The record is a 72-nucleotide RNA sequence from Pseudomonas protegens, which matches "sucC RNA" in Rfam. The sequence is in the family's curated seed alignment.
[Rfam]
RNA sequence: GUCACAGGUGGUGCGGCACUCAAUCUUGAGCGCAGCGCCGAAUGCGCAGUACCUAACGAAGACGGUAAAAAG
Numbered sequence: 001g002u003c004a005c006a007g008g009u010g011g012u013g014c015g016g017c018a019c020u021c022a023a024u025c026u027u028g029a030g031c032g033c034a035g036c037g038c039c040g041a042a043u044g045c046g047c048a049g050u051a052c053c054u055a056a057c058g059a060a061g062a063c064g065g066u067a068a069a070a071a072g
Stems, first nucleotide, its partner, number of pairs: 009040006016033002019030004